This 97-nucleotide RNA sequence belongs to the Rfam family "SAM-I/IV (S-adenosyl methionine) riboswitch aptamer".
A reference for the family is Weinberg et al. (2008), "The aptamer core of SAM-IV riboswitches mimics the ligand-binding site of SAM-I riboswitches", RNA.

[Rfam]
RNA sequence: UUUAUGCAUUAAGAGCAGGAUUAAUUUCCUCUCCAACCUGCCAACUCCGGUAAGGUGGAAAAAAUGAUGCGGUUAACCAACAACUAUAGGAGCUAAA
Numbered sequence: 001u002u003u004a005u006g007c008a009u010u011a012a013g014a015g016c017a018g019g020a021u022u023a024a025u026u027u028c029c030u031c032u033c034c035a036a037c038c039u040g041c042c043a044a045c046u047c048c049g050g051u052a053a054g055g056u057g058g059a060a061a062a063a064a065u066g067a068u069g070c071g072g073u074u075a076a077c078c079a080a081c082a083a084c085u086a087u088a089g090g091a092g093c094u095a096a097a
Stems, first nucleotide, its partner, number of pairs: 006070005015031001017030004032059003037055003040051003045092004072081003
The sequence is in the family's curated seed alignment. Gene Ontology terms of the family: regulation of gene expression and S-adenosylmethionine metabolic process.